[Rfam]
Annotation:
The record is a 95-nucleotide sequence from Triticum aestivum, which matches "Small nucleolar RNA Z157/R69/R10" in Rfam. The family's consensus secondary structure was predicted with PFOLD. The family has 10 seed sequences and 836 matches in Rfam 15.1.

RNA sequence: UUUGUAGCGGUGAUGACAAAUUUGUGGACUAGAGUUUCUGAUGCCGCCUCUUCAGCAGUAUCUGCAGACAAUCCCUUGGUUGACUGAGGUCCCAA
Number, nucleotide and partner (000 for none) at each position: 001u095002u094003u000004g092005u000006a090007g000008c088009g000010g000011u000012g000013a000014u000015g000016a000017c000018a000019a000020a000021u000022u000023u000024g000025u000026g000027g000028a000029c000030u000031a000032g000033a000034g000035u067036u066037u000038c064039u000040g000041a000042u060043g059044c058045c000046g056047c055048c000049u000050c000051u000052u000053c000054a000055g047056c046057a000058g044059u043060a042061u000062c000063u000064g038065c000066a036067g035068a000069c000070a000071a000072u000073c000074c000075c000076u000077u000078g000079g000080u000081u000082g000083a000084c000085u000086g000087a000088g008089g000090u006091c000092c004093c000094a002095a001